A member of the RNA family "Glycine riboswitch aptamer" from Paracidovorax avenae, 110 nucleotides long.
RNA sequence: CGAAUGCCGUCUGGAGAGCCGCCACAGCCUGUGGCGCACCGAAGGAGCAAGCCCUGCGCCGUGUUGGCCGCGGGGUGAAUCUCUCAGGUACCAAGGACAGGGGGAGCGGC
Numbered sequence: 001c002g003a004a005u006g007c008c009g010u011c012u013g014g015a016g017a018g019c020c021g022c023c024a025c026a027g028c029c030u031g032u033g034g035c036g037c038a039c040c041g042a043a044g045g046a047g048c049a050a051g052c053c054c055u056g057c058g059c060c061g062u063g064u065u066g067g068c069c070g071c072g073g074g075g076u077g078a079a080u081c082u083c084u085c086a087g088g089u090a091c092c093a094a095g096g097a098c099a100g101g102g103g104g105a106g107c108g109g110c
Stems, first nucleotide, its partner, number of pairs: 007104002010101004020036004038089003041085002045083003051076008